Rfam assigns this 127-nucleotide RNA from Streptococcus pantholopis to the family "Ribosomal protein L20 leader".
From the family's description: This family is a putative r-protein leader autoregulatory structure found in B. subtilis and other low-GC Gram-positive bacteria.
By type it is a cis-regulatory leader.
RNA sequence: UGAGAAAAGCAGAAGUGAGAACUUCUCGCCUUGCGACUAAACGUUGUCUGGCUCUACAUAUCAAGUUUCAGUAAUGAAAUAUAUUGUAGUGCGGAUUUGUGAAUCAAGUCCGCUUUCGUUUUUCUCU
Numbered sequence: 001u002g003a004g005a006a007a008a009g010c011a012g013a014a015g016u017g018a019g020a021a022c023u024u025c026u027c028g029c030c031u032u033g034c035g036a037c038u039a040a041a042c043g044u045u046g047u048c049u050g051g052c053u054c055u056a057c058a059u060a061u062c063a064a065g066u067u068u069c070a071g072u073a074a075u076g077a078a079a080u081a082u083a084u085u086g087u088a089g090u091g092c093g094g095a096u097u098u099g100u101g102a103a104u105c106a107a108g109u110c111c112g113c114u115u116u117c118g119u120u121u122u123u124c125u126c127u
Stems, first nucleotide, its partner, number of pairs: 011026006028052003033047005091113009
Rfam links the family to the GO term regulation of gene expression. The literature on the family includes a 1994 paper in Prog Nucleic Acid Res Mol Biol by Zengel and Lindahl, "Diverse mechanisms for regulating ribosomal protein synthesis in Escherichia coli".